[Rfam]
RNA sequence: GUUCCCAUAGCUCAGUGGUAGAGCGCGGCAUUUUGAUUAAAGCGCCGGUGCCUAUGGUUCGAAUCCAUAUGGGAGCG
Numbered sequence: 001g002u003u004c005c006c007a008u009a010g011c012u013c014a015g016u017g018g019u020a021g022a023g024c025g026c027g028g029c030a031u032u033u034u035g036a037u038u039a040a041a042g043c044g045c046c047g048g049u050g051c052c053u054a055u056g057g058u059u060c061g062a063a064u065c066c067a068u069a070u071g072g073g074a075g076c077g
Stems, first nucleotide, its partner, number of pairs: 001076007010024004026047004053069005
About this RNA:
A member of the RNA family "tRNA" from Pseudogymnoascus sp. VKM F-3808, 77 nucleotides long. Transfer RNA (tRNA) molecules are approximately 80 nucleotides in length. The family's RNA type in Rfam is transfer RNA.